[Rfam]
RNA sequence: GCAGAACCUCACAUCACCUGUCAUAUAUUCUCAGAAAUAAGGUCUGAGAGUUUCUACAGGGAGACCGUAAAUCUCCCAACUAUGGCGGGAAACACAGAUUGG
Numbered sequence: 001g002c003a004g005a006a007c008c009u010c011a012c013a014u015c016a017c018c019u020g021u022c023a024u025a026u027a028u029u030c031u032c033a034g035a036a037a038u039a040a041g042g043u044c045u046g047a048g049a050g051u052u053u054c055u056a057c058a059g060g061g062a063g064a065c066c067g068u069a070a071a072u073c074u075c076c077c078a079a080c081u082a083u084g085g086c087g088g089g090a091a092a093c094a095c096a097g098a099u100u101g102g
Stems, first nucleotide, its partner, number of pairs: 018088008029049007059077006

The record is a 102-nucleotide RNA sequence from Novibacillus thermophilus, which matches "Purine riboswitch aptamer" in Rfam. The source organism's lineage runs through Bacteria, Bacillati, Bacilli, Caryophanales and Novibacillus. The base pairs follow the family's consensus structure, which is taken from published work.